[Rfam]
RNA sequence: CGUCGGACGCCGCCCAACCGGGUGCCGGCAGUGAGCCGGCUCCCGGGCCGGGGACCCAACGCAGUACCUGGGGUGAAGCAGGACGGGACACCAGUCCCGGUCUGCCGGGCGAGUUCCCCGCCCGAACCCGUCAGCUAACCCGGUCGGCGGUCAAGGAGAACAGGA
Numbered sequence: 001c002g003u004c005g006g007a008c009g010c011c012g013c014c015c016a017a018c019c020g021g022g023u024g025c026c027g028g029c030a031g032u033g034a035g036c037c038g039g040c041u042c043c044c045g046g047g048c049c050g051g052g053g054a055c056c057c058a059a060c061g062c063a064g065u066a067c068c069u070g071g072g073g074u075g076a077a078g079c080a081g082g083a084c085g086g087g088a089c090a091c092c093a094g095u096c097c098c099g100g101u102c103u104g105c106c107g108g109g110c111g112a113g114u115u116c117c118c119c120g121c122c123c124g125a126a127c128c129c130g131u132c133a134g135c136u137a138a139c140c141c142g143g144u145c146g147g148c149g150g151u152c153a154a155g156g157a158g159a160a161c162a163g164g165a
Stems, first nucleotide, its partner, number of pairs: 011149004018046005047144006057070002071129003079104004107123004